[Rfam]
RNA: hya RNA
RNA sequence: AGCGCCGCGUAAGUGGGCCGAUGGUCGACUCCGGUGGCGUCAGGGGCCACAGCCCAGUCCAGCCCCGGAAAGCUGCAG
Number, nucleotide and partner (000 for none) at each position: 001a000002g000003c039004g038005c037006c036007g035008c034009g000010u000011a000012a000013g000014u000015g000016g000017g000018c000019c000020g000021a000022u000023g000024g000025u000026c000027g000028a000029c000030u000031c000032c000033g000034g008035u007036g006037g005038c004039g003040u000041c000042a000043g066044g065045g064046g063047c062048c000049a000050c000051a000052g000053c000054c000055c000056a000057g000058u000059c000060c000061a000062g047063c046064c045065c044066c043067g000068g000069a000070a000071a000072g000073c000074u000075g000076c000077a000078g000